Nitrogen stress-induced RNA 1: a 63-nucleotide sequence from Calothrix sp. NIES-3974. For this family Rfam cites "Heterocyst-specific transcription of NsiR1, a non-coding RNA encoded in a tandem array of direct repeats in cyanobacteria" (Ionescu et al., J Mol Biol, 2010). The base pairs follow the family's consensus structure. The family has 17 seed sequences and 962 matches in Rfam 15.1.

[Rfam]
Nucleotides: 063
Base pairs, nucleotide, nucleotide: 002013003012004011028055029054030053031052032051033050034049035048036047037046038045
Number, partner (000 for none) and nucleotide at each position: 001000u002013g003012g004011u005000a006000g007000a008000u009000g010000c011004a012003c013002c014000c015000u016000g017000a018000u019000a020000a021000c022000u023000c024000a025000u026000u027000c028055c029054c030053c031052c032051u033050a034049g035048u036047u037046g038045a039000c040000u041000g042000c043000c044000a045038u046037u047036a048035a049034c050033u051032a052031g053030g054029g055028g056000a057000u058000u059000u060000u061000u062000u063000u